[Rfam]
RNA: Group I catalytic intron
RNA sequence: ACUACAGGCUAAAGAGUUUGGCCCAUAUUACCGUAAGGUGAUAUGAAAAACCGGGUGAAUUGCAAGGAAGCCUAACCCUAAUCUAGGAUGAUUCAAUAAUAUGAUUUGAUUCAAUGUGUUGGGUUGGUUAAAAAAUGUUGUCAAUUGAUUCUAUUUUAUUGAUGGAUGGUUGGAUGGCAAAUUCAAUCAAACACACAAUUCGGUUCGGAAUGGUAAUUUGCAGCGAAGCUUAGCUAGAUGUAUUAAAUAGGCUAAGAACGUUCAACGACUAGAAGGUGAGCAACAUCAGCAAUACUCCUUCCACGAGCGCCCGGCCCCUUCUUCUUAUAUCAAGGGUGAUGACAUAGUCUGAACAAUAUAGAAAUAUAUUG
Number, nucleotide and partner (000 for none) at each position: 001a000002c000003u000004a000005c000006a000007g023008g022009c021010u020011a019012a018013a017014g000015a000016g000017u013018u012019u011020g010021g009022c008023c007024c000025a000026u000027a000028u000029u040030a039031c038032c000033g000034u000035a000036a000037g000038g031039u030040g029041a000042u000043a000044u000045g000046a000047a000048a000049a000050a000051c314052c313053g312054g311055g000056u309057g308058a000059a000060u000061u222062g221063c220064a219065a218066g217067g000068a000069a000070g000071c213072c212073u000074a000075a000076c000077c000078c000079u000080a000081a000082u000083c000084u000085a000086g000087g000088a000089u000090g000091a000092u000093u000094c000095a000096a000097u000098a000099a000100u000101a000102u000103g000104a000105u000106u000107u000108g000109a000110u000111u000112c000113a000114a000115u000116g000117u000118g000119u000120u000121g000122g000123g000124u000125u000126g000127g000128u000129u000130a000131a000132a000133a000134a000135a000136u000137g000138u000139u000140g000141u000142c000143a000144a000145u000146u000147g000148a000149u000150u000151c000152u000153a000154u000155u000156u000157u000158a000159u000160u000161g000162a000163u000164g000165g000166a000167u000168g000169g000170u000171u000172g000173g000174a000175u000176g000177g000178c000179a000180a000181a000182u000183u000184c000185a000186a000187u000188c000189a000190a000191a000192c000193a000194c000195a000196c000197a000198a000199u000200u000201c000202g000203g000204u000205u000206c000207g000208g000209a000210a000211u000212g072213g071214u000215a000216a000217u066218u065219u064220g063221c062222a061223g261224c260225g000226a000227a000228g000229c000230u254231u000232a000233g000234c000235u000236a000237g248238a000239u000240g000241u000242a000243u000244u000245a000246a000247a000248u237249a000250g000251g000252c000253u000254a230255a000256g000257a000258a000259c000260g224261u223262u000263c000264a000265a350266c000267g349268a348269c347270u346271a345272g000273a000274a000275g000276g000277u000278g000279a000280g000281c000282a000283a000284c000285a000286u000287c000288a000289g000290c000291a000292a000293u000294a000295c000296u000297c000298c000299u000300u000301c000302c000303a000304c000305g000306a000307g000308c057309g056310c000311c054312c053313g052314g051315c000316c000317c336318c335319u334320u333321c000322u000323u000324c000325u000326u000327a000328u000329a000330u000331c000332a000333a320334g319335g318336g317337u000338g000339a000340u000341g000342a000343c000344a000345u271346a270347g269348u268349c267350u265351g000352a000353a000354c000355a000356a369357u368358a367359u366360a365361g000362a000363a000364a000365u360366a359367u358368a357369u356370u000371g000